[Rfam]
RNA sequence: UCCGCAAAUAGUAAACCUGCCGUGAGGCGGGGACACAAAGCCACAGACCCCAAGCGGGUGGCUGGGCUGCCGGAG
Numbered sequence: 001u002c003c004g005c006a007a008a009u010a011g012u013a014a015a016c017c018u019g020c021c022g023u024g025a026g027g028c029g030g031g032g033a034c035a036c037a038a039a040g041c042c043a044c045a046g047a048c049c050c051c052a053a054g055c056g057g058g059u060g061g062c063u064g065g066g067c068u069g070c071c072g073g074a075g
Stems, first nucleotide, its partner, number of pairs: 001075001003072002011036002016031006034061001039068004044064003047059003
Record summary: c-di-GMP-I-GGC riboswitch aptamer: a 75-nucleotide RNA from Malonomonas rubra. On this family, see Weinberg et al., Proc Natl Acad Sci U S A 2017: "Bioinformatic analysis of riboswitch structures uncovers variant classes with altered ligand specificity". The family's consensus secondary structure is taken from published work.